[Rfam]
RNA sequence: UUAACUCAAAUUUGUAUGGAGUUGAAACGUUUGCCUACGUUUACCACUAGGGGCGCUAGGGGCGCAGUUCCAAUUGCAUACAAAUUUGAGUUA
Numbered sequence: 001u002u003a004a005c006u007c008a009a010a011u012u013u014g015u016a017u018g019g020a021g022u023u024g025a026a027a028c029g030u031u032u033g034c035c036u037a038c039g040u041u042u043a044c045c046a047c048u049a050g051g052g053g054c055g056c057u058a059g060g061g062g063c064g065c066a067g068u069u070c071c072a073a074u075u076g077c078a079u080a081c082a083a084a085u086u087u088g089a090g091u092u093a
Base pairs, nucleotide, nucleotide: 008087009086010085011084012083013082014081015080016079018077020075021074022073023072024071026069027068028067034061035060036059039056040055